[Rfam]
RNA sequence: CGGACCGUCAAAUUGGUUGUGAAUUAUGUUUUUAUAUUAAUAUUUCAUAUCACAGCCAUUUUGACGAGUUUGA
Numbered sequence: 001c002g003g004a005c006c007g008u009c010a011a012a013u014u015g016g017u018u019g020u021g022a023a024u025u026a027u028g029u030u031u032u033u034a035u036a037u038u039a040a041u042a043u044u045u046c047a048u049a050u051c052a053c054a055g056c057c058a059u060u061u062u063g064a065c066g067a068g069u070u071u072g073a
Stems, first nucleotide, its partner, number of pairs: 006066007014058009027049003
This 73-nucleotide sequence from Lucilia cuprina belongs to the Rfam family "mir-2 microRNA precursor family".
Rfam 15.1 lists 918 matches to the family in 280 species.
Gene Ontology terms of the family: RISC complex and miRNA-mediated post-transcriptional gene silencing.
It scores 70 bits against the family's covariance model.
For this family Rfam cites "An extensive class of small RNAs in Caenorhabditis elegans" (Lee and Ambros, Science, 2001).